[Rfam]
RNA sequence: AUGCCUUAAACUAAUGAGUAAGGAAAAUAAUGAACCAGAGUGACGCCUGGUUCCUCACUACAUUUGUGAGAAGAAUUUUUGAACGGGUACAGGUCGCCCCUCUGCUGGAUCCACCUACUUAGUGGGACCGCUAGGUGCAGUGAUCUGCCCG
Numbered sequence: 001a002u003g004c005c006u007u008a009a010a011c012u013a014a015u016g017a018g019u020a021a022g023g024a025a026a027a028u029a030a031u032g033a034a035c036c037a038g039a040g041u042g043a044c045g046c047c048u049g050g051u052u053c054c055u056c057a058c059u060a061c062a063u064u065u066g067u068g069a070g071a072a073g074a075a076u077u078u079u080u081g082a083a084c085g086g087g088u089a090c091a092g093g094u095c096g097c098c099c100c101u102c103u104g105c106u107g108g109a110u111c112c113a114c115c116u117a118c119u120u121a122g123u124g125g126g127a128c129c130g131c132u133a134g135g136u137g138c139a140g141u142g143a144u145c146u147g148c149c150c151g
Base pairs, nucleotide, nucleotide: 004023005022006021007020008019032053033052034051035050036049037048038047054070055069056068057067058066084151085150086149087148088147091146092145093144094143095142096141097140100135101134104131105130107128110126111125112124113123114122
Description: A member of the RNA family "U12 minor spliceosomal RNA" from Hymenochirus boettgeri, 151 nucleotides long. The family's RNA type in Rfam is spliceosomal small nuclear RNA. The literature on the family includes a 1997 paper in Trends Biochem Sci by Tarn and Steitz, "Pre-mRNA splicing: the discovery of a new spliceosome doubles the challenge". The match comes from Rfam's covariance-model search (134 bits). Clan: U2 clan.